This 88-nucleotide RNA sequence belongs to the Rfam family "small nucleolar RNA snoR114".
For this family Rfam cites "Mining small RNA sequencing data: a new approach to identify small nucleolar RNAs in Arabidopsis" (Chen and Wu, Nucleic Acids Res, 2009).

[Rfam]
RNA sequence: AGGCUGUGAGGAAACUUGCGCUUAAAUGAUGGAUUUGGGUUCAUCACCAUCGUCUGAAAUAUUGACGAGUUAGUGCGCAUCUGAGCUU
Numbered sequence: 001a002g003g004c005u006g007u008g009a010g011g012a013a014a015c016u017u018g019c020g021c022u023u024a025a026a027u028g029a030u031g032g033a034u035u036u037g038g039g040u041u042c043a044u045c046a047c048c049a050u051c052g053u054c055u056g057a058a059a060u061a062u063u064g065a066c067g068a069g070u071u072a073g074u075g076c077g078c079a080u081c082u083g084a085g086c087u088u
Base pairs, nucleotide, nucleotide: 001088002087003086004085
Record summary
It is annotated as a C/D-box small nucleolar RNA.